msiK RNA: a 60-nucleotide sequence from Herbiconiux ginsengi. It is annotated as a cis-regulatory element. Pairs were carried over by alignment from the consensus structure, which is taken from published work.

Nucleotides: 060
Base pairs, nucleotide, nucleotide: 010052011051012050014048015047016046028045029044030043031042032041033040
Number, partner (000 for none) and nucleotide at each position: 001000g002000c003000c004000c005000g006000u007000u008000a009000a010052u011051c012050c013000a014048u015047c016046a017000c018000a019000a020000c021000g022000g023000a024000u025000c026000g027000u028045c029044c030043g031042g032041c033040a034000c035000g036000u037000a038000c039000c040033u041032g042031c043030c044029g045028g046016u047015g048014a049000a050012g051011g052010a053000g054000u055000a056000a057000u058000a059000g060000a